[Rfam]
RNA sequence: CACACUCACCCGCUCACGGCAGGAGCGGGGGACCCACAGGCAACACCGCCUGUUCCGGCCCCCGGAACAGGCCAGGGGUGAAGCCGCGGCGAACGCGGCCGGGCAGCUCCAGCCCGAACCCGACAGCUCACCUCGCAGGCGCCGGAGAGGAAUC
Numbered sequence: 001c002a003c004a005c006u007c008a009c010c011c012g013c014u015c016a017c018g019g020c021a022g023g024a025g026c027g028g029g030g031g032a033c034c035c036a037c038a039g040g041c042a043a044c045a046c047c048g049c050c051u052g053u054u055c056c057g058g059c060c061c062c063c064g065g066a067a068c069a070g071g072c073c074a075g076g077g078g079u080g081a082a083g084c085c086g087c088g089g090c091g092a093a094c095g096c097g098g099c100c101g102g103g104c105a106g107c108u109c110c111a112g113c114c115c116g117a118a119c120c121c122g123a124c125a126g127c128u129c130a131c132c133u134c135g136c137a138g139g140c141g142c143c144g145g146a147g148a149g150g151a152a153u154c
Stems, first nucleotide, its partner, number of pairs: 007141001009139002014024002025136006035075001076121003084098004101115004
c-di-AMP riboswitch aptamer (ydaO/yuaA leader): a 154-nucleotide sequence from Streptomyces naganishii. The source organism's lineage runs through Bacteria, Bacillati, Kitasatosporales, Streptomyces and Streptomyces naganishii. Gene Ontology terms of the family: regulation of gene expression and cyclic-di-AMP binding. It scores 48 bits against the family's covariance model.